[Rfam]
RNA sequence: GAGUUGGAAUGAAAAAACACGAUCCGGUUGGUAGUCCGGAUGCAGCAGUCCUUGCUGUAAGUAACCUUCCCCUCCUCGGGAUGUCCGUCGUUCUAAUUACUUUU
Numbered sequence: 001g002a003g004u005u006g007g008a009a010u011g012a013a014a015a016a017a018c019a020c021g022a023u024c025c026g027g028u029u030g031g032u033a034g035u036c037c038g039g040a041u042g043c044a045g046c047a048g049u050c051c052u053u054g055c056u057g058u059a060a061g062u063a064a065c066c067u068u069c070c071c072c073u074c075c076u077c078g079g080g081a082u083g084u085c086c087g088u089c090g091u092u093c094u095a096a097u098u099a100c101u102u103u104u
Base pairs, nucleotide, nucleotide: 004096005095006094007093008092009091010090011089022041023040024039025038026037027036042058043057044056045055046054047053068081069080070079071078

azaaromatic riboswitch aptamer (yjdF RNA): a 104-nucleotide RNA sequence from Bacillus sp. PK3_68. It scores 88 bits against the family's covariance model. The organism belongs to Bacillus, within Bacteria.